[Rfam]
RNA sequence: UCGUGUGCUCUGGGGUCGGUGUAAGUCCGAACCGGCGGUGACAGUCCGCGACCCGUCCGCUUCUGCGGUCGGCUGACCAGGUGGAACUCCUGGACCGACGGUAAAAGUCCGGAUGGGAAGCGCACACGG
Numbered sequence: 001u002c003g004u005g006u007g008c009u010c011u012g013g014g015g016u017c018g019g020u021g022u023a024a025g026u027c028c029g030a031a032c033c034g035g036c037g038g039u040g041a042c043a044g045u046c047c048g049c050g051a052c053c054c055g056u057c058c059g060c061u062u063c064u065g066c067g068g069u070c071g072g073c074u075g076a077c078c079a080g081g082u083g084g085a086a087c088u089c090c091u092g093g094a095c096c097g098a099c100g101g102u103a104a105a106a107g108u109c110c111g112g113a114u115g116g117g118a119a120g121c122g123c124a125c126a127c128g129g
Base pairs, nucleotide, nucleotide: 003127004126005125006124007123008122010120017029018028019027031108032107033097034096035049036048037047038046044095045094053072054071077093078092079091080090081089099111100110101109
RNA: FMN riboswitch aptamer (RFN element)